Rfam assigns this 63-nucleotide RNA sequence from Bacteroides thetaiotaomicron to the family "Fluoride riboswitch aptamer (crcB RNA motif)". It is one of the family's seed sequences. The family's consensus secondary structure is taken from published work. The organism belongs to Bacteroides thetaiotaomicron, within Bacteria.
RNA sequence: CUUUGCACCGGCUAUGGGAUUAGCCUUUAACCGCCCUUUGGAGCUGAUGAUCCCUACAAUUUG
Numbered sequence: 001c002u003u004u005g006c007a008c009c010g011g012c013u014a015u016g017g018g019a020u021u022a023g024c025c026u027u028u029a030a031c032c033g034c035c036c037u038u039u040g041g042a043g044c045u046g047a048u049g050a051u052c053c054c055u056a057c058a059a060u061u062u063g
Stems, first nucleotide, its partner, number of pairs: 010025004016054006033044002036041001